This 72-nucleotide RNA from Cnephaeus nilssonii belongs to the Rfam family "mir-9209 microRNA precursor family".
Rfam 15.1 lists 188 matches to the family in 3 species.
Taxonomically the source falls in Cnephaeus (Eukaryota, Craniata, Euteleostomi, Vespertilionidae).
Rfam links the family to the GO terms miRNA-mediated post-transcriptional gene silencing and RISC complex.
The match comes from Rfam's covariance-model search (92 bits).

RNA sequence: AGUGCAGUGGUUGGCAAACCGCGGCUCGUGAGCCACAUGAGGCUCGCGAGCCGCGGUUUGCCACUCUGUUGA
Numbered sequence: 001a002g003u004g005c006a007g008u009g010g011u012u013g014g015c016a017a018a019c020c021g022c023g024g025c026u027c028g029u030g031a032g033c034c035a036c037a038u039g040a041g042g043c044u045c046g047c048g049a050g051c052c053g054c055g056g057u058u059u060g061c062c063a064c065u066c067u068g069u070u071g072a
Stems, first nucleotide, its partner, number of pairs: 004069004009065002012063018031044004